[Rfam]
RNA sequence: ACGCGCUGGCGGGGCUCGGUGAAAUUCCGAACCGGCGGUAAGCGGAAGUCCGCGAGCCCGCGACCCGGUCGAAGCCGUCGACCGGUGGAUCUGGUGUGAGUCCAGAGCCGACGGUCAUAGUCCGGAUGGGAGUUCAGCGCGC
Dot-bracket structure: ..((((((((......(((.......))).[[((((((.................[[))))...((.................))....(((((.......)))))]])).(((.....]]))).......)).))))))..